[Rfam]
A member of the RNA family "tRNA" from Ceratocystis platani, 73 nucleotides long. NCBI's taxonomy places the organism under Eukaryota, Dikarya, Hypocreomycetidae, Microascales, Ceratocystis.
RNA sequence: GUCCCUGUGGCCCAACGGAUAAGGCGUGAGACUACGAAUCUCAAGAUUGCGGGUUCGAAUCCCGUCAGGGAUA
Numbered sequence: 001g002u003c004c005c006u007g008u009g010g011c012c013c014a015a016c017g018g019a020u021a022a023g024g025c026g027u028g029a030g031a032c033u034a035c036g037a038a039u040c041u042c043a044a045g046a047u048u049g050c051g052g053g054u055u056c057g058a059a060u061c062c063c064g065u066c067a068g069g070g071a072u073a
Stems, first nucleotide, its partner, number of pairs: 001072007010025003027043005049065005
By type it is a transfer RNA.